[Rfam]
RNA: Small nucleolar RNA SNORA57
Organism: Mytilus galloprovincialis
RNA sequence: CCACCUAUUCUUGGCAUGUUAAGUAUUGAAUGGUAACUUACCAUGUAUGUGAUGGUGGUAUAUAAAAUGUGGACUGUCUUCGGUGCUGAAGUUCUGCAUACUUCAGAUCCCUCUAUGUUCACAACAGUC
Numbered sequence: 001c002c003a004c005c006u007a008u009u010c011u012u013g014g015c016a017u018g019u020u021a022a023g024u025a026u027u028g029a030a031u032g033g034u035a036a037c038u039u040a041c042c043a044u045g046u047a048u049g050u051g052a053u054g055g056u057g058g059u060a061u062a063u064a065a066a067a068u069g070u071g072g073a074c075u076g077u078c079u080u081c082g083g084u085g086c087u088g089a090a091g092u093u094c095u096g097c098a099u100a101c102u103u104c105a106g107a108u109c110c111c112u113c114u115a116u117g118u119u120c121a122c123a124a125c126a127g128u129c
Stems, first nucleotide, its partner, number of pairs: 001058005015045004020040001022038003026035001072116001086106007